[Rfam]
RNA: Cyano-1 RNA
RNA sequence: AGUCGUGUGAGGAGUAAGUUACAAAAUCGCAAAAGCCCUUGAAGUCGAAACACGGCCAGACGUUCAAGGGCUUUUGUUUG
Number, nucleotide and partner (000 for none) at each position: 001a000002g000003u000004c000005g000006u000007g000008u000009g000010a000011g000012g000013a000014g000015u076016a000017a000018g000019u000020u000021a000022c000023a000024a000025a000026a000027u000028c000029g000030c000031a075032a074033a073034a072035g071036c070037c069038c000039u000040u000041g065042a064043a063044g061045u060046c059047g000048a000049a000050a000051c000052a000053c000054g000055g000056c000057c000058a000059g046060a045061c044062g000063u043064u042065c041066a000067a000068g000069g037070g036071c035072u034073u033074u032075u031076g015077u000078u000079u000080g000